This 74-nucleotide RNA sequence from Actinomycetales bacterium JB111 belongs to the Rfam family "tRNA". NCBI's taxonomy places the organism under Bacteria, Bacillati, Actinomycetota, Actinomycetes, Actinomycetales.
RNA sequence: GCCCCUGUAGCUCAGCCGGUCAGAGCAGCGAACUCAUAAUUCGUCGGUCGCGGGUUCAAGCCCCGCCGGGGGCA
Dot-bracket structure: (((((((..((((.........)))).(((((.......))))).....(((((.......)))))))))))).
Numbered sequence: 001g002c003c004c005c006u007g008u009a010g011c012u013c014a015g016c017c018g019g020u021c022a023g024a025g026c027a028g029c030g031a032a033c034u035c036a037u038a039a040u041u042c043g044u045c046g047g048u049c050g051c052g053g054g055u056u057c058a059a060g061c062c063c064c065g066c067c068g069g070g071g072g073c074a
Stems, first nucleotide, its partner, number of pairs: 001073007010026004028044005050066005
The family's RNA type in Rfam is transfer RNA.